[Rfam]
RNA sequence: UCACGAAAAGGGCAAAACCAUUGAAAGAUGGUGACGCAAAACUAUAGGAGCUACGGGAAACUACGCUUGCCAGUUAUCGAA
Numbered sequence: 001u002c003a004c005g006a007a008a009a010g011g012g013c014a015a016a017a018c019c020a021u022u023g024a025a026a027g028a029u030g031g032u033g034a035c036g037c038a039a040a041a042c043u044a045u046a047g048g049a050g051c052u053a054c055g056g057g058a059a060a061c062u063a064c065g066c067u068u069g070c071c072a073g074u075u076a077u078c079g080a081a
Stems, first nucleotide, its partner, number of pairs: 012037002017032006040075004047071002049067003056061001
A member of the RNA family "c-di-GMP-I riboswitch aptamer" from Paraliobacillus sp. PM-2, 81 nucleotides long. Taxonomically the source falls in Paraliobacillus (Bacteria, Bacillota, Caryophanales, Bacillaceae). Gene Ontology term of the family: cyclic-di-GMP binding. From the family's description: GEMM was predicted in a large-scale screen for bacterial structured RNA regulatory elements. Genes associated with GEMM are involved in a diverse array of functions, including chemotaxis regulation, signal transduction, secretion and chitin.